[Rfam]
RNA sequence: UGGUUUCCCGCUUCAACAGUGCUUGGACGGAACCCA
Numbered sequence: 001u002g003g004u005u006u007c008c009c010g011c012u013u014c015a016a017c018a019g020u021g022c023u024u025g026g027a028c029g030g031a032a033c034c035c036a
Stems, first nucleotide, its partner, number of pairs: 001036003005032004010028001012027005017021001
Background
The record is a 36-nucleotide RNA from Ictidomys tridecemlineatus, which matches "Iron response element I" in Rfam. A search with the family's covariance model found it, with a score of 50 bits. It is annotated as a cis-regulatory element. Gene Ontology term of the family: response to iron ion.